RNA sequence: GUUGAUACCCUAACAGUGGUCCUGACCUGUCUGAAUCAUUUGGUAAGUGCUAUUUGUUGGGGUAGUUGUA
Numbered sequence: 001g002u003u004g005a006u007a008c009c010c011u012a013a014c015a016g017u018g019g020u021c022c023u024g025a026c027c028u029g030u031c032u033g034a035a036u037c038a039u040u041u042g043g044u045a046a047g048u049g050c051u052a053u054u055u056g057u058u059g060g061g062g063u064a065g066u067u068g069u070a
Stems, first nucleotide, its partner, number of pairs: 004066001006064006013057004018051003022047002025044003
RNA: miR-430 microRNA precursor family
Organism: Clarias magur